[Rfam]
RNA sequence: GGGUGCGGUGUCGUCGCCGCAGGUCACCCCGGCUGGUCGGGCCGCCAGCC
Numbered sequence: 001g002g003g004u005g006c007g008g009u010g011u012c013g014u015c016g017c018c019g020c021a022g023g024u025c026a027c028c029c030c031g032g033c034u035g036g037u038c039g040g041g042c043c044g045c046c047a048g049c050c
Base pairs, nucleotide, nucleotide: 005020006019007018008017009016010015031050032049033048034047035046036045037044